[Rfam]
RNA: 6A RNA
RNA sequence: AGAACUGCUUGUAUAGUGGCAAGCAGAAUAAUAAAAAGAAACACUAUACUAAG
Numbered sequence: 001a002g003a004a005c006u007g008c009u010u011g012u013a014u015a016g017u018g019g020c021a022a023g024c025a026g027a028a029u030a031a032u033a034a035a036a037a038g039a040a041a042c043a044c045u046a047u048a049c050u051a052a053g
Stems, first nucleotide, its partner, number of pairs: 006025006014046004